[Rfam]
RNA sequence: GUGGAGGAUGAUGAAAAAAAUCAGACGGAUUCCCAAUGAGUUAAACCGUGAUAUCAUAACCAGCUACUUCUGACUCAC
Numbered sequence: 001g002u003g004g005a006g007g008a009u010g011a012u013g014a015a016a017a018a019a020a021u022c023a024g025a026c027g028g029a030u031u032c033c034c035a036a037u038g039a040g041u042u043a044a045a046c047c048g049u050g051a052u053a054u055c056a057u058a059a060c061c062a063g064c065u066a067c068u069u070c071u072g073a074c075u076c077a078c
Stems, first nucleotide, its partner, number of pairs: 001078003005075002
RNA: Small nucleolar RNA R12